c-di-GMP-I riboswitch aptamer: an 84-nucleotide RNA from Bacillus methanolicus.
[Rfam]
RNA sequence: AAACGAUAAAGGCAAACUUAUCGAAAGGUAAGGACGCAAAGCUACAGACCUAAAGCAAAAAGCUAUGGUGGCUGAGCUACCGAA
Number, nucleotide and partner (000 for none) at each position: 001a000002a000003a000004c000005g000006a000007u000008a000009a000010a000011g000012g037013c036014a000015a000016a000017c032018u031019u030020a029021u028022c027023g000024a000025a000026a000027g022028g021029u020030a019031a018032g017033g000034a000035c000036g013037c012038a000039a000040a078041g077042c076043u075044a000045c074046a073047g072048a069049c068050c067051u000052a000053a000054a000055g063056c062057a000058a000059a000060a000061a000062g056063c055064u000065a000066u000067g050068g049069u048070g000071g000072c047073u046074g045075a043076g042077c041078u040079a000080c000081c000082g000083a000084a000
The family's consensus secondary structure is taken from published work. GEMM was predicted in a large-scale screen for bacterial structured RNA regulatory elements.